[Rfam]
RNA sequence: GACACUGUGGCCGAGUGGUUAAGGCGAUGGUUUCGAAAGCCAUUUCCCUUGGGAGCAUGGGUUCAAAUCCCAUCGGUGUCG
Numbered sequence: 001g002a003c004a005c006u007g008u009g010g011c012c013g014a015g016u017g018g019u020u021a022a023g024g025c026g027a028u029g030g031u032u033u034c035g036a037a038a039g040c041c042a043u044u045u046c047c048c049u050u051g052g053g054a055g056c057a058u059g060g061g062u063u064c065a066a067a068u069c070c071c072a073u074c075g076g077u078g079u080c081g
Base pairs, nucleotide, nucleotide: 001080002079003078004077005076006075007074010025011024012023027043028042029041030040031039057073058072059071060070061069
Dot-bracket structure: (((((((..(((..........))).(((((.......))))).............(((((.......)))))))))))).